A member of the RNA family "TD-2 RNA" from Treponema phagedenis, 115 nucleotides long. A search with the family's covariance model found it, with a score of 58 bits. For this family Rfam cites "Identification of 22 candidate structured RNAs in bacteria using the CMfinder comparative genomics pipeline" (Weinberg et al., Nucleic Acids Res, 2007). Rfam 15.1 lists 310 matches to the family in 11 species.
[Rfam]
RNA sequence: ACGGGCACGGACGCCCGUGGUUCCAUGCAGAAACGAUGUUUUAAAGCAAAGUAAUUUGCAAAGCUUUAAAACUCGCAGGUUUGGUUUUGACAUGGACGUCAAAACCAAACCGUUG
Numbered sequence: 001a002c003g004g005g006c007a008c009g010g011a012c013g014c015c016c017g018u019g020g021u022u023c024c025a026u027g028c029a030g031a032a033a034c035g036a037u038g039u040u041u042u043a044a045a046g047c048a049a050a051g052u053a054a055u056u057u058g059c060a061a062a063g064c065u066u067u068a069a070a071a072c073u074c075g076c077a078g079g080u081u082u083g084g085u086u087u088u089g090a091c092a093u094g095g096a097c098g099u100c101a102a103a104a105c106c107a108a109a110c111c112g113u114u115g
Stems, first nucleotide, its partner, number of pairs: 001018006034075003038072010078111014